This 70-nucleotide RNA sequence from Monodelphis domestica belongs to the Rfam family "mir-383 microRNA precursor family".
The sequence is in the family's curated seed alignment.
Taxonomically the source falls in Monodelphis (Eukaryota, Chordata, Teleostomi, Didelphidae).
Pairs were carried over by alignment from the consensus structure, which was predicted with RNAalifold.
Gene Ontology terms of the family: miRNA-mediated post-transcriptional gene silencing and RISC complex.

[Rfam]
RNA sequence: CUCAGAUCAGAAGGUGAUUGUGGCUUUCGGUAGACAUGGAACAGCCACAUCACUGGCUGGUCAGAAAGAG
Numbered sequence: 001c002u003c004a005g006a007u008c009a010g011a012a013g014g015u016g017a018u019u020g021u022g023g024c025u026u027u028c029g030g031u032a033g034a035c036a037u038g039g040a041a042c043a044g045c046c047a048c049a050u051c052a053c054u055g056g057c058u059g060g061u062c063a064g065a066a067a068g069a070g
Base pairs, nucleotide, nucleotide: 002065003064005062006061007060008059009058010057013054014053015052016051019049020048021047022046023045024044025043026040027039028038029037